[Rfam]
The family of this 67-nucleotide RNA sequence from Gracilibacillus halotolerans is "Bacillaceae-1 RNA".
The organism belongs to Gracilibacillus, within Bacteria.

Nucleotides: 067
Stems, first nucleotide, its partner, number of pairs: 011049007025039005053067005
Number, partner (000 for none) and nucleotide at each position: 001000u002000g003000a004000u005000g006000g007000u008000g009000a010000u011049g012048u013047u014046c015045g016044g017043c018000g019000a020000a021000u022000a023000a024000c025039g026038c027037a028036a029035c030000a031000u032000c033000c034000u035029g036028u037027u038026g039025c040000a041000a042000c043017g044016c045015c046014g047013a048012a049011c050000u051000g052000a053067a054066c055065u056064a057063c058000a059000u060000c061000c062000u063057g064056u065055a066054g067053u